A member of the RNA family "gabT RNA" from Pseudomonas putida, 61 nucleotides long. By type it is a cis-regulatory element. NCBI's taxonomy places the organism under Bacteria, Pseudomonadota, Pseudomonadaceae, Pseudomonas, Pseudomonas putida.
[Rfam]
RNA sequence: GGUGGCCAGGGCGUUUGCGGCAGUCGAUCAACGAAUACUGUUCGCGAGCACUCCCAGCCCC
Numbered sequence: 001g002g003u004g005g006c007c008a009g010g011g012c013g014u015u016u017g018c019g020g021c022a023g024u025c026g027a028u029c030a031a032c033g034a035a036u037a038c039u040g041u042u043c044g045c046g047a048g049c050a051c052u053c054c055c056a057g058c059c060c061c
Base pairs, nucleotide, nucleotide: 001061002060004059005058006057013049014048015047016046017045018044019043020041021040022039023038024037025033026032